[Rfam]
RNA: Guanidine-I riboswitch aptamer
RNA sequence: GGAUCGCUAGGGUUCCGGUCGUGCGGCGUUCGCGCCGCACGAUGCUGGUCCGAGAGCAAUCCGGUCUUGCCUUCGCCUCGUUCGCGAGGAAACGGCGAGGCUCCACGGAGGGAUAAAAGCCCGGGAGG
Numbered sequence: 001g002g003a004u005c006g007c008u009a010g011g012g013u014u015c016c017g018g019u020c021g022u023g024c025g026g027c028g029u030u031c032g033c034g035c036c037g038c039a040c041g042a043u044g045c046u047g048g049u050c051c052g053a054g055a056g057c058a059a060u061c062c063g064g065u066c067u068u069g070c071c072u073u074c075g076c077c078u079c080g081u082u083c084g085c086g087a088g089g090a091a092a093c094g095g096c097g098a099g100g101c102u103c104c105a106c107g108g109a110g111g112g113a114u115a116a117a118a119g120c121c122c123g124g125g126a127g128g
Stems, first nucleotide, its partner, number of pairs: 002061003006057002010051002015048002017045001018043010063102008104124001106127001110122003